[Rfam]
Annotation
This 67-nucleotide sequence from Nocardia speluncae belongs to the Rfam family "Actino-pnp RNA". It is annotated as a cis-regulatory element.

RNA sequence: GUCGGUCUUCGGUAGUGGCUUUUCGGCCCGGGGUCGAUACGCCGGAGAGCUUCGAUCGUUGACCGCC
Number, nucleotide and partner (000 for none) at each position: 001g067002u000003c065004g064005g063006u062007c061008u000009u000010c058011g057012g056013u055014a000015g000016u000017g051018g050019c049020u048021u047022u046023u045024c044025g043026g042027c041028c000029c000030g000031g000032g000033g000034u000035c000036g000037a000038u000039a000040c000041g027042c026043c025044g024045g023046a022047g021048a020049g019050c018051u017052u000053c000054g000055a013056u012057c011058g010059u000060u000061g007062a006063c005064c004065g003066c000067c001

Description: The organism belongs to Nocardia, within Bacteria.